[Rfam]
Shown here is a 129-nucleotide RNA from Muntiacus reevesi, a member of the family "small Cajal body-specific RNA 17". Rfam's curators write: scaRNAs are a specific class of small nuclear RNAs which localise to the Cajal bodies and guide the modification of RNA polymerase II transcribed spliceosomal RNAs U1, U2, U4, U5 and U12. The complete human U12-22/U4-8 scaRNA is composed of two tandem C/D box domains (termed U12-22 and U4-8). Rfam links the family to the GO terms nucleolus, Cajal body and RNA processing. The family's RNA type in Rfam is small Cajal body RNA. On this family, see Tycowski et al., Curr Biol 2004: "Guide RNAs with 5' Caps and Novel Box C/D snoRNA-like Domains for Modification of snRNAs in Metazoa".
RNA sequence: CCCCCGGGUCCACGAUGCAGCCCCCAGAUGAGGGCGCAGUAUUUUCCUUAUAUGAUCGGGCCCCGUGGCUGGCGGCGCCUGAGAGGAUAAUGAAAACGUGUCAGGUGAAAUGGGGCCAGGGACCCGGGG
Numbered sequence: 001c002c003c004c005c006g007g008g009u010c011c012a013c014g015a016u017g018c019a020g021c022c023c024c025c026a027g028a029u030g031a032g033g034g035c036g037c038a039g040u041a042u043u044u045u046c047c048u049u050a051u052a053u054g055a056u057c058g059g060g061c062c063c064c065g066u067g068g069c070u071g072g073c074g075g076c077g078c079c080u081g082a083g084a085g086g087a088u089a090a091u092g093a094a095a096a097c098g099u100g101u102c103a104g105g106u107g108a109a110a111u112g113g114g115g116c117c118a119g120g121g122a123c124c125c126g127g128g129g
Stems, first nucleotide, its partner, number of pairs: 001129003005126007013119001020116005056082006063075004